[Rfam]
RNA sequence: AUGUUAAAUUACUCUUAACCGAAGAGAGCGACGGUGAUGGUUCACUUAAUUUGUUGCCGAGGUGAUGAUAAGAAUCUUUUUAUCCGCCGAAUUCGGCGGAUUUUUUGUAUUAUGGU
Numbered sequence: 001a002u003g004u005u006a007a008a009u010u011a012c013u014c015u016u017a018a019c020c021g022a023a024g025a026g027a028g029c030g031a032c033g034g035u036g037a038u039g040g041u042u043c044a045c046u047u048a049a050u051u052u053g054u055u056g057c058c059g060a061g062g063u064g065a066u067g068a069u070a071a072g073a074a075u076c077u078u079u080u081u082a083u084c085c086g087c088c089g090a091a092u093u094c095g096g097c098g099g100a101u102u103u104u105u106u107g108u109a110u111u112a113u114g115g116u
Stems, first nucleotide, its partner, number of pairs: 028057006034045003082101008
RNA: Ribosomal protein L10 leader